[Rfam]
RNA sequence: AAGGCGGGCUGGACGAUCGCGGUGGAUGCGAAUCCAUCGAGGAAGGUCCGGACUCCACAGGGCAGGGUAGCGGCUAACGGCCGUCCGGCGUCGUCUUAGGGCGAUGUCGAGGAAUAGGGCCACAGAGACGAGUCUGCGGGGCGGGCGCGGCGACGCGCACAGGUACGGCCAUCUCCGUAUCGCGCCGUCCGGUAACGGGCGGCGGCAUCGCAGGGUGAAACGCGGCAACCUCUACCCGGAGCAACAUCAAAUAGGCAUGCGUGCGGUCUUCGGGCCGCGAAGGGCGGCUCCGUCCAAGCAUGCGGGUAGAUGGCUACAGCGGCUCAGCAAUGAUCCGCGCAGAGGAAUGAUCGUCCGCCGGGGCAACCCGGUGUACAGAAUCCGGCCUACAGGCCCGUCUUGCAU
Numbered sequence: 001a002a003g004g005c006g007g008g009c010u011g012g013a014c015g016a017u018c019g020c021g022g023u024g025g026a027u028g029c030g031a032a033u034c035c036a037u038c039g040a041g042g043a044a045g046g047u048c049c050g051g052a053c054u055c056c057a058c059a060g061g062g063c064a065g066g067g068u069a070g071c072g073g074c075u076a077a078c079g080g081c082c083g084u085c086c087g088g089c090g091u092c093g094u095c096u097u098a099g100g101g102c103g104a105u106g107u108c109g110a111g112g113a114a115u116a117g118g119g120c121c122a123c124a125g126a127g128a129c130g131a132g133u134c135u136g137c138g139g140g141g142c143g144g145g146c147g148c149g150g151c152g153a154c155g156c157g158c159a160c161a162g163g164u165a166c167g168g169c170c171a172u173c174u175c176c177g178u179a180u181c182g183c184g185c186c187g188u189c190c191g192g193u194a195a196c197g198g199g200c201g202g203c204g205g206c207a208u209c210g211c212a213g214g215g216u217g218a219a220a221c222g223c224g225g226c227a228a229c230c231u232c233u234a235c236c237c238g239g240a241g242c243a244a245c246a247u248c249a250a251a252u253a254g255g256c257a258u259g260c261g262u263g264c265g266g267u268c269u270u271c272g273g274g275c276c277g278c279g280a281a282g283g284g285c286g287g288c289u290c291c292g293u294c295c296a297a298g299c300a301u302g303c304g305g306g307u308a309g310a311u312g313g314c315u316a317c318a319g320c321g322g323c324u325c326a327g328c329a330a331u332g333a334u335c336c337g338c339g340c341a342g343a344g345g346a347a348u349g350a351u352c353g354u355c356c357g358c359c360g361g362g363g364c365a366a367c368c369c370g371g372u373g374u375a376c377a378g379a380a381u382c383c384g385g386c387c388u389a390c391a392g393g394c395c396c397g398u399c400u401u402g403c404a405u
Stems, first nucleotide, its partner, number of pairs: 001401010011390001012355007020039008044388003048385005053241004060290004065237005070084005085111001086109010112232002117230002119226003134214002136211004141206002144203001245312004255303006282295004319338004324333003
The family of this 405-nucleotide RNA sequence from Achromobacter sp. AONIH1 is "Bacterial RNase P class A". Its family is annotated with tRNA processing, ribonuclease P activity and dimeric ribonuclease P complex in the Gene Ontology. By type it is a ribozyme.